A member of the RNA family "terC RNA" from Halovulum marinum, 61 nucleotides long.
Lineage of the source: Bacteria > Pseudomonadati > Pseudomonadota > Rhodobacterales > Halovulum.
By type it is a cis-regulatory element.
RNA sequence: GUGCGGUGACCGGGCCCCUCUGGCGGAAGUGGCGGCGCUUUCGUGAUGUCGGAACCGCGUU
Numbered sequence: 001g002u003g004c005g006g007u008g009a010c011c012g013g014g015c016c017c018c019u020c021u022g023g024c025g026g027a028a029g030u031g032g033c034g035g036c037g038c039u040u041u042c043g044u045g046a047u048g049u050c051g052g053a054a055c056c057g058c059g060u061u
Base pairs, nucleotide, nucleotide: 006055007054010052011051012050013049023044024043025042026041027040028039029038030037